This 141-nucleotide RNA sequence belongs to the Rfam family "IMES-2 RNA motif". Pairs were carried over by alignment from the consensus structure, which is taken from published work. On this family, see Weinberg et al., Nature 2009: "Exceptional structured noncoding RNAs revealed by bacterial metagenome analysis". Rfam classes the family as a non-coding RNA gene. It is one of the family's seed sequences.
RNA sequence: AGAUGAAUUAAGAGGCAACUCUUAACUGACCAUCUAGGGAAAAAUCGAGAGAUUCAAGCCUAGAGGGCAGAAAACUUCGCUGAGUAGCGCUAAAAUAGCGAGGUGGAAGGCAUGGCGGUAGCGCAUACAACGACGUGCCAA
Numbered sequence: 001a002g003a004u005g006a007a008u009u010a011a012g013a014g015g016c017a018a019c020u021c022u023u024a025a026c027u028g029a030c031c032a033u034c035u036a037g038g039g040a041a042a043a044a045u046c047g048a049g050a051g052a053u054u055c056a057a058g059c060c061u062a063g064a065g066g067g068c069a070g071a072a073a074a075c076u077u078c079g080c081u082g083a084g085u086a087g088c089g090c091u092a093a094a095a096u097a098g099c100g101a102g103g104u105g106g107a108a109g110g111c112a113u114g115g116c117g118g119u120a121g122c123g124c125a126u127a128c129a130a131c132g133a134c135g136u137g138c139c140a141a
Stems, first nucleotide, its partner, number of pairs: 008025007026070003030067002033064006043054004074104008087124005109139006116132002